[Rfam]
Rfam assigns this 158-nucleotide sequence from Glycine soja to the family "MIR4371 microRNA precursor family". Taxonomically the source falls in Glycine subgen. Soja (Eukaryota, Euphyllophyta, Mesangiospermae, Papilionoideae).

RNA sequence: CUAUUAAGUGAUGAUGUGAUAGACAUAAUGUCACAUUAUUAAGUCUUGUUAUAGAUACUUCAUUGUCACGUCAUCACCUUCAAUGACAUGAAAAUGAUGUAUCAGUGCUUGAAUAUGAUGACGUGGUACUCUGUUUGACACGUUAUCACUUAACAUAA
Numbered sequence: 001c002u003a004u005u006a007a008g009u010g011a012u013g014a015u016g017u018g019a020u021a022g023a024c025a026u027a028a029u030g031u032c033a034c035a036u037u038a039u040u041a042a043g044u045c046u047u048g049u050u051a052u053a054g055a056u057a058c059u060u061c062a063u064u065g066u067c068a069c070g071u072c073a074u075c076a077c078c079u080u081c082a083a084u085g086a087c088a089u090g091a092a093a094a095u096g097a098u099g100u101a102u103c104a105g106u107g108c109u110u111g112a113a114u115a116u117g118a119u120g121a122c123g124u125g126g127u128a129c130u131c132u133g134u135u136u137g138a139c140a141c142g143u144u145a146u147c148a149c150u151u152a153a154c155a156u157a158a
Stems, first nucleotide, its partner, number of pairs: 002155001004153015020137006027130001029128006036121006043114002046111001048109001050107003054103005070087005